This 76-nucleotide RNA from Nelumbo nucifera belongs to the Rfam family "Small nucleolar RNA Z105". The family's consensus secondary structure was predicted with CMfinder. The source organism's lineage runs through Eukaryota, Spermatophyta, Magnoliopsida, Mesangiospermae and Nelumbo. For this family Rfam cites "The high diversity of snoRNAs in plants: identification and comparative study of 120 snoRNA genes from Oryza sativa" (Chen et al., Nucleic Acids Res, 2003). The match comes from Rfam's covariance-model search (52 bits).
RNA sequence: GGAGCGUGAUGAGGAUGAUUCUAAAUUUUCAGAUUUUAAUGAUCGGAAAUCAAUACUUACCUCCUACUCAUUCUGA
Numbered sequence: 001g002g003a004g005c006g007u008g009a010u011g012a013g014g015a016u017g018a019u020u021c022u023a024a025a026u027u028u029u030c031a032g033a034u035u036u037u038a039a040u041g042a043u044c045g046g047a048a049a050u051c052a053a054u055a056c057u058u059a060c061c062u063c064c065u066a067c068u069c070a071u072u073c074u075g076a
Base pairs, nucleotide, nucleotide: 006071007070008069009068029052